[Rfam]
RNA sequence: UCAGGGAGUAGAAGCGGUCAGGGCUCGACGGCCCCGGGCAUUGCUCCGUCC
Numbered sequence: 001u002c003a004g005g006g007a008g009u010a011g012a013a014g015c016g017g018u019c020a021g022g023g024c025u026c027g028a029c030g031g032c033c034c035c036g037g038g039c040a041u042u043g044c045u046c047c048g049u050c051c
Stems, first nucleotide, its partner, number of pairs: 005047006015036001018038002021034005
Dot-bracket structure: ....((((((....[..((.(((((....))))).]))...))))))....